[Rfam]
RNA sequence: ACGAUGUUCCGCUGCAACAGUCAAAAUGGUGUAAGAGCGUCUG
Numbered sequence: 001a002c003g004a005u006g007u008u009c010c011g012c013u014g015c016a017a018c019a020g021u022c023a024a025a026a027u028g029g030u031g032u033a034a035g036a037g038c039g040u041c042u043g
Stems, first nucleotide, its partner, number of pairs: 003041007013033004018028001

The record is a 43-nucleotide sequence from Planococcus sp. PAMC 21323, which matches "Ribosomal protein L19 leader" in Rfam. Rfam describes the family as follows. This family is a putative r-protein leader autoregulatory structure found in B. subtilis and other low-GC Gram-positive bacteria. It scores 42 bits against the family's covariance model.